Annotation:
The family of this 136-nucleotide RNA from Staphylococcus saprophyticus is "FMN riboswitch aptamer (RFN element)".

[Rfam]
Nucleotides: 136
Base pairs, nucleotide, nucleotide: 003134004133005132006131007130008129009128010127017029018028019027031116032115033106034105035052036051037050038049047104048103056081057080058079059078060077086102087101088100089099090098108119109118110117
Number, partner (000 for none) and nucleotide at each position: 001000a002000u003134u004133c005132a006131u007130c008129u009128u010127c011000g012000g013000g014000g015000u016000a017029g018028g019027g020000u021000g022000c023000a024000a025000u026000u027019c028018c029017c030000a031116a032115c033106c034105g035052g036051c037050a038049g039000u040000a041000a042000a043000u044000a045000a046000a047104g048103c049038c050037u051036g052035c053000g054000a055000c056081c057080c058079a059078u060077u061000u062000u063000a064000u065000u066000a067000u068000a069000u070000a071000u072000a073000a074000u075000a076000a077060a078059a079058u080057g081056g082000c083000u084000g085000a086102u087101c088100u089099a090098g091000u092000g093000a094000a095000a096000a097000u098090c099089u100088a101087g102086a103048g104047c105034c106033g107000a108119c109118a110117g111000u112000a113000a114000a115032g116031u117110c118109u119108g120000g121000a122000u123000g124000g125000g126000a127010g128009a129008a130007g131006a132005u133004g134003g135000a136000g